[Rfam]
Nucleotides: 136
Stems, first nucleotide, its partner, number of pairs: 003134005009128002017029003031116002033105002035049004044103002053080006085101005107119003
Number, partner (000 for none) and nucleotide at each position: 001000u002000c003134g004133c005132g006131c007130g008000c009128u010127c011000c012000g013000g014000g015000g016000u017029c018028g019027g020000u021000g022000c023000a024000a025000u026000u027019c028018c029017g030000a031116g032115c033105c034104g035049g036048c037047g038046g039000u040000g041000a042000c043000a044103g045102u046038c047037c048036g049035c050000g051000a052000c053080c054079c055078g056077g057076u058075u059000c060000u061000c062000g063000g064000c065000g066000u067000a068000c069000g070000c071000c072000g073000a074000g075058g076057a077056u078055c079054g080053g081000u082000g083000g084000a085101c086100c087099c088098g089097g090000u091000g092000g093000a094000a095000c096000u097089c098088c099087g100086g101085g102045a103044c104034c105033g106000a107119c108118g109117g110000u111000g112000a113000a114000a115032g116031u117109c118108c119107g120000g121000a122000u123000g124000g125000g126000a127010g128009g129000a130007u131006g132005c133004g134003c135000g136000c

A member of the RNA family "FMN riboswitch aptamer (RFN element)" from a Propionibacteriales bacterium, 136 nucleotides long.
A search with the family's covariance model found it, with a score of 90 bits.
About the family: The RFN element is a highly conserved domain that is found frequently in the 5'-untranslated regions of prokaryotic mRNAs that encode for flavin mononucleotide (FMN) biosynthesis and transport proteins.